Source information:
This 505-nucleotide part of an RNA from Halococcus hamelinensis belongs to the Rfam family "Archaeal small subunit ribosomal RNA". Taxonomically the source falls in Halococcus hamelinensis (Archaea, Methanobacteriati, Halobacteriales, Halococcaceae). The base pairs follow the family's consensus structure, which is taken from published work. Rfam links the family to the GO terms ribosome and structural constituent of ribosome. For this family Rfam cites "The comparative RNA web (CRW) site: an online database of comparative sequence and structure information for ribosomal, intron, and other RNAs" (Cannone et al., BMC Bioinformatics, 2002). Rfam 15.1 lists 709 matches to the family in 491 species. The family is grouped with related families in Rfam's "SSU clan".
Nucleotides: 505
Stems, first nucleotide, its partner, number of pairs: 004020005022495010033383009042341001048339003052336003057080003062077006087294003097218007106211002111207007119153004128143006159184006167177002192199002220266003227257003232254008269291004273284004296317006319330004347373001349372003355368005386406008412430006438484006451478004460467002
Number, partner (000 for none) and nucleotide at each position: 001000a002000u003000u004020c005019c006018g007017g008016u009000u010000g011000a012000u013000c014000c015000u016008g017007c018006c019005g020004g021000a022495g023494g024493c025492u026491a027490u028489u029488g030487c031486u032000a033383u034382c035381g036380g037379g038378a039377u040376c041375c042341g043000a044000u045000u046000c047000a048339g049338g050337c051000a052336u053335g054334c055000u056000a057080g058079u059078c060000g061000u062077a063076c064075g065074a066073g067072u068000u069000c070000a071000g072067a073066c074065u075064c076063g077062u078059g079058g080057c081000g082000u083000a084000u085000a086000g087294c088293u089292c090000a091000g092000u093000a094000a095000c096000a097218c098217g099216u100215g101214g102213u103212c104000a105000a106211a107210c108000c109000a110000c111207c112206c113205u114204c115203u116202g117201g118000a119153c120152c121151g122150g123000g124000a125000u126000a127000c128143c129142c130141u131140c132139g133138g134000g135000a136000a137000a138133c139132u140131g141130a142129g143128g144000u145000c146000a147000a148000u149000c150122c151121c152120g153119g154000a155000u156000a157000c158000u159184g160183c161182u162181u163180u164179c165000a166000c167177g168176u169000u170000g171000g172000a173000a174000a175000a176168a177167c178000g179164g180163a181162a182161a183160g184159c185000u186000g187000g188000a189000a190000a191000c192199g193198g194000u195000c196000c197000g198193c199192c200000g201117c202116c203115g204114g205113a206112g207111g208000a209000c210107g211106u212103g213102a214101c215100u216099g217098c218097g219000g220266c221265c222264g223000a224000u225000u226000a227257g228256g229255u230000a231000g232254a233253c234252g235251g236250u237249g238248g239247g240000g241000u242000a243000a244000c245000g246000g247239c248238c249237c250236a251235c252234c253233g254232u255229g256228c257227c258000a259000a260000u261000a262000a263000u264222c265221g266220g267000u268000a269291c270290g271289g272288g273284u274283u275282g276281u277000g278000a279000g280000a281276g282275c283274a284273a285000g286000a287000g288272c289271c290270c291269g292089g293088a294087g295000a296317c297316g298315g299314a300313a301312u302000c303000u304000g305000a306000g307000a308000c309000a310000a311000g312301a313300u314299u315298c316297c317296g318000g319330g320329c321328c322327c323000u324000a325000c326000g327322g328321g329320g330319c331000g332000c333000a334054g335053c336052a337050g338049c339048c340000g341042c342000g343000a344000a345000a346000c347373c348000u349372u350371u351370a352000c353000a354000c355368u356367g357366c358365a359364c360000g361000a362000c363000a364359g365358u366357g367356c368355g369000a370351u371350a372349a373347g374000g375041g376040g377039a378038u379037c380036c381035c382034g383033a384000g385000u386406g387405c388404g389403a390402g391401g392400g393399c394000a395000u396000a397000c398000a399393g400392u401391c402390c403389u404388c405387g406386c407000u408000u409000u410000u411000c412430g413429u414428g415427a416426c417425c418000g419000u420000a421000a422000g423000g424000u425417g426416g427415u428414c429413a430412c431000a432000g433000a434000a435000u436000a437000a438484g439483g440482g441481c442480u443479g444000g445000g446000c447000a448000a449000g450000a451478c452477c453476g454475g455000u456000g457000c458000c459000a460467g461466c462000c463000g464000c465000c466461g467460c468000g469000g470000u471000a472000a473000u474000a475454c476453c477452g478451g479443c480442a481441g482440c483439c484438c485000g486031a487030g488029u489028g490027a491026u492025a493024g494023c495022c496000a497000a498000u499000u500000u501000u502000a503000u504000u505000g